[Rfam]
RNA sequence: CGAGAAAACUCUUGUUAAGGAACUCGGCAAAAUGACUCCGUAACUUAGGGAUAAGGAGAGCUUUUAUUUCAAAAGUAAAAGCCGCAGAUAAUAGGCCCAAGCGACUGUUUAUCAAAAACAUAGGUCUCUGCUAAACCGUGAGGUGAUGUAUAGGGGCUGAUGCCUGCCCGGUGCUGGAAGAUUAAAAGGAGAUGUUCGGAAAACCAAAGCAUUAAAUUGAAGUCCCAGUGAACGGCGGCCGUAACUAUAACGGUCCUAAGGUAGCGAAAUUCCUUGUCGGGUAAAUUCCGACCCGCACGAAAGGCAUAACGAUUUGGGCGCUGUCUCAACAAGAGUCUCG
Numbered sequence: 001c002g003a004g005a006a007a008a009c010u011c012u013u014g015u016u017a018a019g020g021a022a023c024u025c026g027g028c029a030a031a032a033u034g035a036c037u038c039c040g041u042a043a044c045u046u047a048g049g050g051a052u053a054a055g056g057a058g059a060g061c062u063u064u065u066a067u068u069u070c071a072a073a074a075g076u077a078a079a080a081g082c083c084g085c086a087g088a089u090a091a092u093a094g095g096c097c098c099a100a101g102c103g104a105c106u107g108u109u110u111a112u113c114a115a116a117a118a119c120a121u122a123g124g125u126c127u128c129u130g131c132u133a134a135a136c137c138g139u140g141a142g143g144u145g146a147u148g149u150a151u152a153g154g155g156g157c158u159g160a161u162g163c164c165u166g167c168c169c170g171g172u173g174c175u176g177g178a179a180g181a182u183u184a185a186a187a188g189g190a191g192a193u194g195u196u197c198g199g200a201a202a203a204c205c206a207a208a209g210c211a212u213u214a215a216a217u218u219g220a221a222g223u224c225c226c227a228g229u230g231a232a233c234g235g236c237g238g239c240c241g242u243a244a245c246u247a248u249a250a251c252g253g254u255c256c257u258a259a260g261g262u263a264g265c266g267a268a269a270u271u272c273c274u275u276g277u278c279g280g281g282u283a284a285a286u287u288c289c290g291a292c293c294c295g296c297a298c299g300a301a302a303g304g305c306a307u308a309a310c311g312a313u314u315u316g317g318g319c320g321c322u323g324u325c326u327c328a329a330c331a332a333g334a335g336u337c338u339c340g
Base pairs, nucleotide, nucleotide: 001340002339003338004337009335010334011333012332013331014330015329016328018326019325020324036058037057038056039055044049060082061081062080063079064078065077066076067075068074069073083087095319096318097317098316099315100314101313102311103310106120107119108118123158124157125156126155127154128153129152130151131148135144136143137142161306162305163304164303166236167235168234171233172232173229174228175227176226177225180224181223182222186218187217191213192212193211194210195209198205199204237255238254239253240252241251242250256260266293276292277291278290279289280288281287
Dot-bracket structure: ((((....((((((((.(((...............((((....(....).....)))).((((((((((...))))))))))(...).......(((((((((..(((.........)))..(((((((((...(((....)))...)..))))))))..((((.(((..(((((((..(((...((...(((((..((....))...)))))...))...))))))))..)))))((((((.......))))))(...).....(.........((((((.....))))))).........))))...)).)))))))....))).)))))))).))))